[Rfam]
RNA sequence: UGGGGACUCGGUGGUAACUUUUCGAGGUAUACAAAACAUUCAAAUCCCUAUACCCGUAUAAGUUUCCGCUGAGCCCCU
Numbered sequence: 001u002g003g004g005g006a007c008u009c010g011g012u013g014g015u016a017a018c019u020u021u022u023c024g025a026g027g028u029a030u031a032c033a034a035a036a037c038a039u040u041c042a043a044a045u046c047c048c049u050a051u052a053c054c055c056g057u058a059u060a061a062g063u064u065u066c067c068g069c070u071g072a073g074c075c076c077c078u
Stems, first nucleotide, its partner, number of pairs: 003076003007073008016064003024055001026054006034045001
This 78-nucleotide RNA sequence from Caenorhabditis angaria belongs to the Rfam family "mir-55 microRNA precursor family". Rfam links the family to the GO terms miRNA-mediated post-transcriptional gene silencing and RISC complex. A search with the family's covariance model found it, with a score of 54 bits.